The family of this 76-nucleotide sequence from Laticauda laticaudata is "Mammalian CPEB3 ribozyme". The mammalian CPEB3 ribozyme is a self cleaving RNA located in the second intron of the CPEB3 gene which belongs to a family of genes regulating messenger RNA polyadenylation. This ribozyme is highly conserved and found only in mammals. The CPEB3 ribozyme is structurally and biochemically related to the human hepatitis delta virus (HDV) ribozyme and the HDV ribozyme is proposed to have arisen from the human transcriptome.
RNA sequence: AGAGGAUAAACAGAAUAAAGGAGGAGCGUUCAUGUCGUGGUCCCUGUCAGGUAUCUGUUUACCUGCGAAUCCUUCU
Numbered sequence: 001a002g003a004g005g006a007u008a009a010a011c012a013g014a015a016u017a018a019a020g021g022a023g024g025a026g027c028g029u030u031c032a033u034g035u036c037g038u039g040g041u042c043c044c045u046g047u048c049a050g051g052u053a054u055c056u057g058u059u060u061a062c063c064u065g066c067g068a069a070u071c072c073u074u075c076u
Base pairs, nucleotide, nucleotide: 013042014041016039019076020075021074022073023072024071025070026038027037028036048065049064050063051062052061053060